[Rfam]
RNA sequence: UUGCUGUCAUGGCCGAAGGGGAGAUGUCCCGCCUCGGCCUGGCUGUCUGUGGCUUGGGUUUUAGCGACUCAAACAGCGGAAUGGUGCCUGGUUCGAAUCGCCGGGCCGCGAGAGAAAUUAUUUCCUCUUCUCCCCCACUCGUGCGAGCAGUCCACGACCGGCUGGCGGCGCGCUAAGCAGUGGCCCGCACUCUCGAGGGAAGCGAUUCUGCAGAGACCGGGCUCCCCGGCGAUGGCGGCGCCAGACCACACCGCCGCUGCACAGACCCCCGGGCCGCCUGGGAUGUCGACUCUUUUU
Numbered sequence: 001u002u003g004c005u006g007u008c009a010u011g012g013c014c015g016a017a018g019g020g021g022a023g024a025u026g027u028c029c030c031g032c033c034u035c036g037g038c039c040u041g042g043c044u045g046u047c048u049g050u051g052g053c054u055u056g057g058g059u060u061u062u063a064g065c066g067a068c069u070c071a072a073a074c075a076g077c078g079g080a081a082u083g084g085u086g087c088c089u090g091g092u093u094c095g096a097a098u099c100g101c102c103g104g105g106c107c108g109c110g111a112g113a114g115a116a117a118u119u120a121u122u123u124c125c126u127c128u129u130c131u132c133c134c135c136c137a138c139u140c141g142u143g144c145g146a147g148c149a150g151u152c153c154a155c156g157a158c159c160g161g162c163u164g165g166c167g168g169c170g171c172g173c174u175a176a177g178c179a180g181u182g183g184c185c186c187g188c189a190c191u192c193u194c195g196a197g198g199g200a201a202g203c204g205a206u207u208c209u210g211c212a213g214a215g216a217c218c219g220g221g222c223u224c225c226c227c228g229g230c231g232a233u234g235g236c237g238g239c240g241c242c243a244g245a246c247c248a249c250a251c252c253g254c255c256g257c258u259g260c261a262c263a264g265a266c267c268c269c270c271g272g273g274c275c276g277c278c279u280g281g282g283a284u285g286u287c288g289a290c291u292c293u294u295u296u297u
Stems, first nucleotide, its partner, number of pairs: 001015001003013002016294005023287004032281002035276008045266004075258005082253005088244005093238003097233009130170001132168002135165003139157005145152002173177001182223006191216004199208003

The record is a 297-nucleotide sequence from Blastomyces parvus, which matches "Fungal signal recognition particle RNA" in Rfam. Clan: SRP clan. It is annotated as a non-coding RNA gene. A search with the family's covariance model found it, with a score of 139 bits.